[Rfam]
RNA sequence: UAAUAUUACAUGAAAAGAGACAUAUGCUUCAACAUACCUCUCUUGUGUAGUCCGUUCAAAGCGGAAGGCUUAAUUUUAUAUCUAAAA
Numbered sequence: 001u002a003a004u005a006u007u008a009c010a011u012g013a014a015a016a017g018a019g020a021c022a023u024a025u026g027c028u029u030c031a032a033c034a035u036a037c038c039u040c041u042c043u044u045g046u047g048u049a050g051u052c053c054g055u056u057c058a059a060a061g062c063g064g065a066a067g068g069c070u071u072a073a074u075u076u077u078a079u080a081u082c083u084a085a086a087a
Base pairs, nucleotide, nucleotide: 023036024035025034026033052064053063054062055061056060
Dot-bracket structure: ......................((((......))))...............(((((...))))).......................